[Rfam]
RNA sequence: GCGGAGGUAGCUCAAUUGGCAGAGCGCGAGUCUUCCAAACUCGAGGCUAUGGGUUCGAUUCCCAUCUUCCGCC
Numbered sequence: 001g002c003g004g005a006g007g008u009a010g011c012u013c014a015a016u017u018g019g020c021a022g023a024g025c026g027c028g029a030g031u032c033u034u035c036c037a038a039a040c041u042c043g044a045g046g047c048u049a050u051g052g053g054u055u056c057g058a059u060u061c062c063c064a065u066c067u068u069c070c071g072c073c
Stems, first nucleotide, its partner, number of pairs: 001072007010025004027043005049065005
RNA: tRNA